[Rfam]
RNA: mir-9/mir-79 microRNA precursor family
Organism: Meloidogyne graminicola
RNA sequence: GUGUUUAUCGCUUUGGUCAUUUAGCUGUAUGAAUCCGUUUAUUUGAUCAUAAAGCUAGAUUACCAGAGCUAGAAACUC
Numbered sequence: 001g002u003g004u005u006u007a008u009c010g011c012u013u014u015g016g017u018c019a020u021u022u023a024g025c026u027g028u029a030u031g032a033a034u035c036c037g038u039u040u041a042u043u044u045g046a047u048c049a050u051a052a053a054g055c056u057a058g059a060u061u062a063c064c065a066g067a068g069c070u071a072g073a074a075a076c077u078c
Base pairs, nucleotide, nucleotide: 001078003076004075005074008071010069011068012067013066014065015064016063017062019060020059021058022057023056024055025054026053028051029050030049031048032047